[Rfam]
RNA sequence: UCACCCCUCCAUGGGGAGGAGCAGCAGCCCUUACUUCACGUGCCUGAAGGGCUUCGGGGUGAGGAU
Numbered sequence: 001u002c003a004c005c006c007c008u009c010c011a012u013g014g015g016g017a018g019g020a021g022c023a024g025c026a027g028c029c030c031u032u033a034c035u036u037c038a039c040g041u042g043c044c045u046g047a048a049g050g051g052c053u054u055c056g057g058g059g060u061g062a063g064g065a066u
Base pairs, nucleotide, nucleotide: 004021006019007018008017009016010015024055026053027052028051029050030049031048032047

This 66-nucleotide sequence from Fukomys damarensis belongs to the Rfam family "Whalefall-1 RNA". The base pairs follow the family's consensus structure, which is taken from published work. The match comes from Rfam's covariance-model search (38 bits).